This 74-nucleotide RNA sequence from Macrostomum lignano belongs to the Rfam family "Small nucleolar RNA SNORD24". It scores 42 bits against the family's covariance model. Rfam 15.1 lists 2,843 matches to the family in 1,188 species. A reference for the family is Hirose and Steitz (2001), "Position within the host intron is critical for efficient processing of box C/D snoRNAs in mammalian cells", Proc Natl Acad Sci U S A.
RNA sequence: GGUCAAUAUGAUGAACAAAACUAAUUGUCUGCAUGCAAAUUGAAGACGUUUUAAUCACCAAGAUCGCUGAGACU
Numbered sequence: 001g002g003u004c005a006a007u008a009u010g011a012u013g014a015a016c017a018a019a020a021c022u023a024a025u026u027g028u029c030u031g032c033a034u035g036c037a038a039a040u041u042g043a044a045g046a047c048g049u050u051u052u053a054a055u056c057a058c059c060a061a062g063a064u065c066g067c068u069g070a071g072a073c074u
Stems, first nucleotide, its partner, number of pairs: 001074004